[Rfam]
RNA sequence: CAGUUAAAAAGCUCGUAGUUGAACCUUGGGUCUGGCUGGCCGGUCCGCCUCACCGCGAGUACUGGUCCGGCUGGACCUUUCCUUCUGGGGAACCUCAUGGCCUUCACUGGCUGUGGGGGGAACCAGGACUUUUACUGUGAAAAAAUUAGAGUGUUCAAAGCAGGCCUUUGCUCGAAUACAUUAGCAUGGAAUAAUAGAAUAGGACGUGCGGUUCUAUUUUGUUGGUUUCUAGGACCGCCGUAAUGAUUAAUAGGGAUAGUCGGGGGCGUCAGUAUUCAGCUGUCAGAGGUGAAAUUCUUGGAUUUGCUGAAGACUAACUACUGCGAAAGCAUUCGCCAAGGAUGUUUUCAUUAAUCAGGGAACGAAAGUUAGGGGAUCGAAGACGAUCAGAUACCGUCGUAGUCUUAACCAUAAACUAUGCCGACUAGGGAUCGGACGGUGUUUCUAUUAUGACCCGUUCGGCACCUUACGAGAAAUCAAAGUUUUUGGGUUCUGGGGGGAGUAUGGUCGCAAGGCUGAAACUUAAAGAAAU
Numbered sequence: 001c002a003g004u005u006a007a008a009a010a011g012c013u014c015g016u017a018g019u020u021g022a023a024c025c026u027u028g029g030g031u032c033u034g035g036c037u038g039g040c041c042g043g044u045c046c047g048c049c050u051c052a053c054c055g056c057g058a059g060u061a062c063u064g065g066u067c068c069g070g071c072u073g074g075a076c077c078u079u080u081c082c083u084u085c086u087g088g089g090g091a092a093c094c095u096c097a098u099g100g101c102c103u104u105c106a107c108u109g110g111c112u113g114u115g116g117g118g119g120g121a122a123c124c125a126g127g128a129c130u131u132u133u134a135c136u137g138u139g140a141a142a143a144a145a146u147u148a149g150a151g152u153g154u155u156c157a158a159a160g161c162a163g164g165c166c167u168u169u170g171c172u173c174g175a176a177u178a179c180a181u182u183a184g185c186a187u188g189g190a191a192u193a194a195u196a197g198a199a200u201a202g203g204a205c206g207u208g209c210g211g212u213u214c215u216a217u218u219u220u221g222u223u224g225g226u227u228u229c230u231a232g233g234a235c236c237g238c239c240g241u242a243a244u245g246a247u248u249a250a251u252a253g254g255g256a257u258a259g260u261c262g263g264g265g266g267c268g269u270c271a272g273u274a275u276u277c278a279g280c281u282g283u284c285a286g287a288g289g290u291g292a293a294a295u296u297c298u299u300g301g302a303u304u305u306g307c308u309g310a311a312g313a314c315u316a317a318c319u320a321c322u323g324c325g326a327a328a329g330c331a332u333u334c335g336c337c338a339a340g341g342a343u344g345u346u347u348u349c350a351u352u353a354a355u356c357a358g359g360g361a362a363c364g365a366a367a368g369u370u371a372g373g374g375g376a377u378c379g380a381a382g383a384c385g386a387u388c389a390g391a392u393a394c395c396g397u398c399g400u401a402g403u404c405u406u407a408a409c410c411a412u413a414a415a416c417u418a419u420g421c422c423g424a425c426u427a428g429g430g431a432u433c434g435g436a437c438g439g440u441g442u443u444u445c446u447a448u449u450a451u452g453a454c455c456c457g458u459u460c461g462g463c464a465c466c467u468u469a470c471g472a473g474a475a476a477u478c479a480a481a482g483u484u485u486u487u488g489g490g491u492u493c494u495g496g497g498g499g500g501a502g503u504a505u506g507g508u509c510g511c512a513a514g515g516c517u518g519a520a521a522c523u524u525a526a527a528g529a530a531a532u
Stems, first nucleotide, its partner, number of pairs: 001495003011363001013361002018355003253349003256345003260341002265337004271315002275311006282304001286297003323330002368409006378402001382398004420491003423484003427468004433462001435460002471478002497524003506517004